[Rfam]
A member of the RNA family "L31-Gammaproteobacteria ribosomal protein leader" from Gymnodraco acuticeps, 50 nucleotides long. The literature on the family includes a 2020 paper in BMC Microbiol by Eckert and Weinberg, "Discovery of 20 novel ribosomal leader candidates in bacteria and archaea". Rfam classes the family as a cis-regulatory leader. Taxonomically the source falls in Gymnodraco (Eukaryota, Opisthokonta, Gnathostomata, Osteoglossocephalai). Pairs were carried over by alignment from the consensus structure, which is taken from published work. A search with the family's covariance model found it, with a score of 33 bits.
RNA sequence: CGCGUGGCGACUGAAGUCCGUUCAGAGAGCAACGCGACUUCCAUUGAGGU
Numbered sequence: 001c002g003c004g005u006g007g008c009g010a011c012u013g014a015a016g017u018c019c020g021u022u023c024a025g026a027g028a029g030c031a032a033c034g035c036g037a038c039u040u041c042c043a044u045u046g047a048g049g050u
Stems, first nucleotide, its partner, number of pairs: 001036005007030002011025005